This 66-nucleotide RNA sequence from Bacilli bacterium VT-13-104 belongs to the Rfam family "Bacillaceae-1 RNA". The base pairs follow the family's consensus structure, which is taken from published work. Lineage of the source: Bacteria > Bacillati > Bacillota > Bacilli.

RNA sequence: GAAGCGUCCUUACAGGCUAAAAAUGCGACGUCCUGUCGCAACGCCUGUACUCGCACGUCCUGUGCU
Numbered sequence: 001g002a003a004g005c006g007u008c009c010u011u012a013c014a015g016g017c018u019a020a021a022a023a024u025g026c027g028a029c030g031u032c033c034u035g036u037c038g039c040a041a042c043g044c045c046u047g048u049a050c051u052c053g054c055a056c057g058u059c060c061u062g063u064g065c066u
Stems, first nucleotide, its partner, number of pairs: 011049007025039005053065004
Dot-bracket structure: ..........(((((((.......(((((.....)))))...)))))))...((((.....)))).